Description: Small nucleolar RNA Z199: an 80-nucleotide sequence from Triticum aestivum. From the family's description: snoZ199 is a C/D box small nucleolar RNA, which acts as a methylation guide RNA for sites on 18S and 25S rRNA. Rice snoZ199 is reported to be homologous to Arabidopsis snoR13. Its family is annotated with nucleolus and RNA processing in the Gene Ontology. Lineage of the source: Eukaryota > Viridiplantae > Embryophyta > Triticeae > Triticum. A search with the family's covariance model found it, with a score of 55 bits.

[Rfam]
RNA sequence: GGUUCAAGUGAUGAUGAGAAGCUGCAACAAUAUGACAGGAGUUACACUCCUGUGAUUCGUCGUUAAAGUCUGAUGAUAUC
Numbered sequence: 001g002g003u004u005c006a007a008g009u010g011a012u013g014a015u016g017a018g019a020a021g022c023u024g025c026a027a028c029a030a031u032a033u034g035a036c037a038g039g040a041g042u043u044a045c046a047c048u049c050c051u052g053u054g055a056u057u058c059g060u061c062g063u064u065a066a067a068g069u070c071u072g073a074u075g076a077u078a079u080c
Stems, first nucleotide, its partner, number of pairs: 001080002004078001005075002037051005